[Rfam]
RNA sequence: CGAACCGCGGCUUGGGAGAGCUGUGCGGCUCAUAGGAUCCGCGGCCCGCCUGGGAGGGCGAACCGGGGAUCGCAGGGGAGAACGACGAUGGAGAAUGUUAGUCUCAUCGGACUUUCGCGGCAGAUGACGCUGG
Numbered sequence: 001c002g003a004a005c006c007g008c009g010g011c012u013u014g015g016g017a018g019a020g021c022u023g024u025g026c027g028g029c030u031c032a033u034a035g036g037a038u039c040c041g042c043g044g045c046c047c048g049c050c051u052g053g054g055a056g057g058g059c060g061a062a063c064c065g066g067g068g069a070u071c072g073c074a075g076g077g078g079a080g081a082a083c084g085a086c087g088a089u090g091g092a093g094a095a096u097g098u099u100a101g102u103c104u105c106a107u108c109g110g111a112c113u114u115u116c117g118c119g120g121c122a123g124a125u126g127a128c129g130c131u132g133g
Stems, first nucleotide, its partner, number of pairs: 002031002005028003008023006036071005047060005086109004091105004
RNA: flg-Rhizobiales RNA